Source information:
Shown here is a 73-nucleotide RNA sequence from Elaeis guineensis, a member of the family "tRNA". Pairs were carried over by alignment from the consensus structure, which is taken from published work. By type it is a transfer RNA. It scores 53 bits against the family's covariance model.

RNA sequence: GCCCGCUUAGCUUGGAGGUUAAAGCAUCACAUUUAUAAUGCGAUGGUUGUCAGUUUGAUUCUGAUAGCCGGCU
Numbered sequence: 001g002c003c004c005g006c007u008u009a010g011c012u013u014g015g016a017g018g019u020u021a022a023a024g025c026a027u028c029a030c031a032u033u034u035a036u037a038a039u040g041c042g043a044u045g046g047u048u049g050u051c052a053g054u055u056u057g058a059u060u061c062u063g064a065u066a067g068c069c070g071g072c073u
Base pairs, nucleotide, nucleotide: 001072002071003070005068006067007066010025011024012023013022027043028042030040031039049065050064051063052062053061